Background: The record is a 153-nucleotide RNA sequence from Triticum turgidum, which matches "U4 spliceosomal RNA" in Rfam.
[Rfam]
RNA sequence: AUCUUUGCGCUUGGGGCAAUGACGCAGCUAGUGAGGUAAUACCGAGGCGCGUCAAUUGCUGGUUGAAAACUAUUUCCAAACCCCCUCUUUGGCCCUCACGGGUCACGAGAAUUUCUGAAAGGGCUCCCCUCUCCUUCGGGCGAGGGCAAGGCC
Numbered sequence: 001a002u003c004u005u006u007g008c009g010c011u012u013g014g015g016g017c018a019a020u021g022a023c024g025c026a027g028c029u030a031g032u033g034a035g036g037u038a039a040u041a042c043c044g045a046g047g048c049g050c051g052u053c054a055a056u057u058g059c060u061g062g063u064u065g066a067a068a069a070c071u072a073u074u075u076c077c078a079a080a081c082c083c084c085c086u087c088u089u090u091g092g093c094c095c096u097c098a099c100g101g102g103u104c105a106c107g108a109g110a111a112u113u114u115c116u117g118a119a120a121g122g123g124c125u126c127c128c129c130u131c132u133c134c135u136u137c138g139g140g141c142g143a144g145g146g147c148a149a150g151g152c153c
Stems, first nucleotide, its partner, number of pairs: 021053005027048003035043003085109003090105006122153004
Rfam 15.1 lists 32,178 matches to the family in 2,547 species. Gene Ontology terms of the family: spliceosomal tri-snRNP complex assembly and U4 snRNP.